[Rfam]
RNA sequence: GUAAAGGAGCAAUAACAAACCUCUUGAUAUAACAAGAAAUUUAUUAUUGCUCCUUUACUUUC
Numbered sequence: 001g002u003a004a005a006g007g008a009g010c011a012a013u014a015a016c017a018a019a020c021c022u023c024u025u026g027a028u029a030u031a032a033c034a035a036g037a038a039a040u041u042u043a044u045u046a047u048u049g050c051u052c053c054u055u056u057a058c059u060u061u062c
Stems, first nucleotide, its partner, number of pairs: 001058015017042003022037005

The family of this 62-nucleotide RNA sequence from Prunus armeniaca is "Plastid-psbA-2 3UTR RNA". Rfam describes the family as follows. Plastid psbA-2 is a non-coding RNA (ncRNA) present in plastids. Taxonomically the source falls in Prunus (Eukaryota, Tracheophyta, Pentapetalae, fabids). The family's RNA type in Rfam is cis-regulatory element.